[Rfam]
RNA sequence: UACUACCAAACCCUAUCUCCACCUCCACGUGGUGAUCGCUGGGAGUUCUUUCGUAAUGAAAGACUGCGAAAGAAGAAGG
Numbered sequence: 001u002a003c004u005a006c007c008a009a010a011c012c013c014u015a016u017c018u019c020c021a022c023c024u025c026c027a028c029g030u031g032g033u034g035a036u037c038g039c040u041g042g043g044a045g046u047u048c049u050u051u052c053g054u055a056a057u058g059a060a061a062g063a064c065u066g067c068g069a070a071a072g073a074a075g076a077a078g079g
Stems, first nucleotide, its partner, number of pairs: 012079003016075001018073002021033003045065001047063007

Shown here is a 79-nucleotide RNA sequence from Hermetia illucens, a member of the family "drz-agam-1 ribozyme". Taxonomically the source falls in Hermetia (Eukaryota, Allotriocarida, Dicondylia, Panorpida). Gene Ontology term of the family: catalytic activity. For this family Rfam cites "Widespread occurrence of self-cleaving ribozymes" (Webb et al., Science, 2009).